Shown here is a 125-nucleotide RNA from Rhinolophus ferrumequinum, a member of the family "Small nucleolar RNA SNORA25". Rfam 15.1 lists 1,129 matches to the family in 449 species.
[Rfam]
RNA sequence: AGGUCAUUUCAAAGAGAGCUUGUGGGAUCAAAACCACGAGCUCUUAACGCUGUGACCAAAGACUGAAGUUCUCCAUAGGAUGUAGUAGUCACUCAAUAGUGCUGUUUUCUUGAGGAGAUACAUAA
Numbered sequence: 001a002g003g004u005c006a007u008u009u010c011a012a013a014g015a016g017a018g019c020u021u022g023u024g025g026g027a028u029c030a031a032a033a034c035c036a037c038g039a040g041c042u043c044u045u046a047a048c049g050c051u052g053u054g055a056c057c058a059a060a061g062a063c064u065g066a067a068g069u070u071c072u073c074c075a076u077a078g079g080a081u082g083u084a085g086u087a088g089u090c091a092c093u094c095a096a097u098a099g100u101g102c103u104g105u106u107u108u109c110u111u112g113a114g115g116a117g118a119u120a121c122a123u124a125a
Base pairs, nucleotide, nucleotide: 002057003056004055005054006053007052014045015044016043017042018041019040020039021038025034070118071117072116073115074114077111078110079109080108085105086104087103088102090101091100092099093098
ACA25 is a member of the H/ACA class of snoRNA that guide the sites of modification of uridines to pseudouridines. The family's RNA type in Rfam is H/ACA-box small nucleolar RNA. The match comes from Rfam's covariance-model search (122 bits).